[Rfam]
RNA sequence: GCCGAGCCUGGUAACGCAAGCUUGUGACCCGAGUGGGGGCUUUAAGGUGAUGGAACACGGGUUCGACUCAUUGAGUCUGUUCUGCAGUGGUUUGAUUCAGGCUUGUCCGUUUCAAGCUAGGAGUUGUACCAAGGGGCACAAGCGUAGGCUUGUGCGUCGUGGUUCCUAGAGAGGGGGAUAAAGCGUGAGGCUGGUUUCACAGAGCAGCGAACACCUCCCGCUCCUGGCAGUGGAAGGAUAACAGGCUUGAUCCAUUCGGAACCACCAUGGCUCAUUGAGCUGACCCCCAACUGGACCGUCAUUUUU
Numbered sequence: 001g002c003c004g005a006g007c008c009u010g011g012u013a014a015c016g017c018a019a020g021c022u023u024g025u026g027a028c029c030c031g032a033g034u035g036g037g038g039g040c041u042u043u044a045a046g047g048u049g050a051u052g053g054a055a056c057a058c059g060g061g062u063u064c065g066a067c068u069c070a071u072u073g074a075g076u077c078u079g080u081u082c083u084g085c086a087g088u089g090g091u092u093u094g095a096u097u098c099a100g101g102c103u104u105g106u107c108c109g110u111u112u113c114a115a116g117c118u119a120g121g122a123g124u125u126g127u128a129c130c131a132a133g134g135g136g137c138a139c140a141a142g143c144g145u146a147g148g149c150u151u152g153u154g155c156g157u158c159g160u161g162g163u164u165c166c167u168a169g170a171g172a173g174g175g176g177g178a179u180a181a182a183g184c185g186u187g188a189g190g191c192u193g194g195u196u197u198c199a200c201a202g203a204g205c206a207g208c209g210a211a212c213a214c215c216u217c218c219c220g221c222u223c224c225u226g227g228c229a230g231u232g233g234a235a236g237g238a239u240a241a242c243a244g245g246c247u248u249g250a251u252c253c254a255u256u257c258g259g260a261a262c263c264a265c266c267a268u269g270g271c272u273c274a275u276u277g278a279g280c281u282g283a284c285c286c287c288c289a290a291c292u293g294g295a296c297c298g299u300c301a302u303u304u305u306u
Base pairs, nucleotide, nucleotide: 001040002039003038004023005022006021007020009018010017028037029036030035044305045304046303047302048301049300050299051298052297053296056293057292059288060287061284062283063282065280068278069277070276072274073273074272075271076270077269079262080261081260082259083258084257086255088254089253090252093250098249099248100247101246102245103244104243105242106241107237108236110235111234112233113232114231116228117227118226119225120224121223122222123221124220126165128163129162130161131160133158134157136155137154138153139152140151141150142149143148166171173218174217175216176215177214184209185208186207191202192201193200
Plant signal recognition particle RNA: a 306-nucleotide RNA sequence from Gossypium hirsutum. A search with the family's covariance model found it, with a score of 234 bits. On this family, see Wild et al., Curr Opin Struct Biol 2002: "Towards the structure of the mammalian signal recognition particle". The source organism's lineage runs through Eukaryota, Streptophyta, Pentapetalae, malvids and Gossypium. The base pairs follow the family's consensus structure, which is taken from published work. It is annotated as a non-coding RNA gene.